The record is a 78-nucleotide RNA from Danio rerio, which matches "mir-103/107 microRNA precursor family" in Rfam. About the family: This family consists of the mammalian microRNA (miRNA) precursors mir-103 and mir107. Animal miRNAs are transcribed as ~70nt precursors and subsequently processed by the Dicer enzyme to give a ~22nt product. In this case the mature sequence comes from the 3' arm of the precursor. The extents of the hairpin precursors are not generally known and are estimated based on hairpin prediction. The products are thought to have regulatory roles through complementarity to mRNA. The involvement of Dicer in miRNA processing suggests a relationship with the phenomenon of RNA interference. miRNAs are numbered based on the sequence of the mature RNA. Rfam links the family to the GO terms RISC complex and miRNA-mediated post-transcriptional gene silencing. The family's consensus secondary structure was predicted with RNAalifold. NCBI's taxonomy places the organism under Eukaryota, Craniata, Actinopteri, Clupeocephala, Danio.

[Rfam]
RNA sequence: GGCCACUCUGGGCUUCUCUACAGUGUUGCCUUGUAGCCUGGUGAUCAAGCAGCAUUGUACAGGGCUUUCAGCGUGUAC
Numbered sequence: 001g002g003c004c005a006c007u008c009u010g011g012g013c014u015u016c017u018c019u020a021c022a023g024u025g026u027u028g029c030c031u032u033g034u035a036g037c038c039u040g041g042u043g044a045u046c047a048a049g050c051a052g053c054a055u056u057g058u059a060c061a062g063g064g065c066u067u068u069c070a071g072c073g074u075g076u077a078c
Stems, first nucleotide, its partner, number of pairs: 014064004019059010030049004